[Rfam]
Background:
A member of the RNA family "EGFOA RNA", 102 nucleotides long. The family's RNA type in Rfam is small RNA. The base pairs follow the family's consensus structure, which is taken from published work.
RNA sequence: GCACUCCCAGAAGAUCCGUACGUGUCCGCGCAAGCGGAGGCAGACGGGGACGAUCCGAUAGGAACGCGGCAAAGCACGACCUGGGCGCGUCCGAGUCCCCCG
Numbered sequence: 001g002c003a004c005u006c007c008c009a010g011a012a013g014a015u016c017c018g019u020a021c022g023u024g025u026c027c028g029c030g031c032a033a034g035c036g037g038a039g040g041c042a043g044a045c046g047g048g049g050a051c052g053a054u055c056c057g058a059u060a061g062g063a064a065c066g067c068g069g070c071a072a073a074g075c076a077c078g079a080c081c082u083g084g085g086c087g088c089g090u091c092c093g094a095g096u097c098c099c100c101c102g
Stems, first nucleotide, its partner, number of pairs: 006085005018080002021078004025038005046100006054063003064090005